[Rfam]
RNA sequence: GUGCGGUCACAAAAAGCGACGCUUUUUGAACGUUGACUUUGCCGACGCUGGCGAAGCCAUAAGUAAUCGCACCGGCGAUUACGCAUAAAAAAUCCGUGUU
Numbered sequence: 001g002u003g004c005g006g007u008c009a010c011a012a013a014a015a016g017c018g019a020c021g022c023u024u025u026u027u028g029a030a031c032g033u034u035g036a037c038u039u040u041g042c043c044g045a046c047g048c049u050g051g052c053g054a055a056g057c058c059a060u061a062a063g064u065a066a067u068c069g070c071a072c073c074g075g076c077g078a079u080u081a082c083g084c085a086u087a088a089a090a091a092a093u094c095c096g097u098g099u100u
Base pairs, nucleotide, nucleotide: 010028011027012026013025014024015023016022017021031047032046033045034044035043037041049059050058051057052056063082064081065080066079067078068077069076070075085097086096
Aggregatibacter sRNA 22: a 100-nucleotide RNA sequence from Actinobacillus succinogenes. Rfam classes the family as a small RNA. For this family Rfam cites "Small RNA repertoires and their intraspecies variation in Aggregatibacter actinomycetemcomitans" (Oogai et al., DNA Res, 2017). The family's consensus secondary structure was predicted with RNAfold.